[Rfam]
The record is a 100-nucleotide RNA sequence from Macleaya cordata, which matches "Small nucleolar RNA Z43" in Rfam. The source organism's lineage runs through Eukaryota, Magnoliopsida, Mesangiospermae, Ranunculales and Macleaya. For this family Rfam cites "The high diversity of snoRNAs in plants: identification and comparative study of 120 snoRNA genes from Oryza sativa" (Chen et al., Nucleic Acids Res, 2003).

RNA sequence: GGACAGUGACGAUUGAUUUGAAAGGUCUCGUUCGUCGUAAUGGGCGUUUUAUUACGUCCUUGCCGACCAUUCUAUAUAUCACCACCCAUAUUCCGAGUCC
Dot-bracket structure: ((((.........................................(.(.......)....)...................................))))

The family's consensus secondary structure was predicted with PFOLD.